[Rfam]
RNA sequence: GAUCAUAUGAAACCAAAUAGUCUCCUGUGGCCCCUGGUGCCAUAACUGUGCCCACAGCAGAGGGAGCAUUAAACUCAUUGCCCACGGGAAAGUGUGGGGAGUGAUACCCAUGUUCCUAGAAUC
Numbered sequence: 001g002a003u004c005a006u007a008u009g010a011a012a013c014c015a016a017a018u019a020g021u022c023u024c025c026u027g028u029g030g031c032c033c034c035u036g037g038u039g040c041c042a043u044a045a046c047u048g049u050g051c052c053c054a055c056a057g058c059a060g061a062g063g064g065a066g067c068a069u070u071a072a073a074c075u076c077a078u079u080g081c082c083c084a085c086g087g088g089a090a091a092g093u094g095u096g097g098g099g100a101g102u103g104a105u106a107c108c109c110a111u112g113u114u115c116c117u118a119g120a121a122u123c
Stems, first nucleotide, its partner, number of pairs: 005049003010043001014039002020031003063116001065114005075104005083096003

The record is a 123-nucleotide RNA sequence from Bucco capensis, which matches "Small nucleolar RNA ACA64" in Rfam. Its family is annotated with nucleolus and RNA processing in the Gene Ontology. By type it is an H/ACA-box small nucleolar RNA. On this family, see Schattner et al., RNA 2006: "A computational screen for mammalian pseudouridylation guide H/ACA RNAs".